Rfam assigns this 37-nucleotide RNA to the family "abiF RNA". Pairs were carried over by alignment from the consensus structure, which is taken from published work. It is annotated as a small RNA. The family has 126 seed sequences and 282 matches in Rfam 15.1. Actinobacteria, Bacteroidetes, Clostridia, Proteobacteria, one Clostridia phage. It is one of the family's seed sequences.
[Rfam]
RNA sequence: CCUUCCAUGCCUCUCAUAGAAGCACAAACAGGAAGGU
Numbered sequence: 001c002c003u004u005c006c007a008u009g010c011c012u013c014u015c016a017u018a019g020a021a022g023c024a025c026a027a028a029c030a031g032g033a034a035g036g037u
Base pairs, nucleotide, nucleotide: 001036002035003034004033005032006031008024009023010022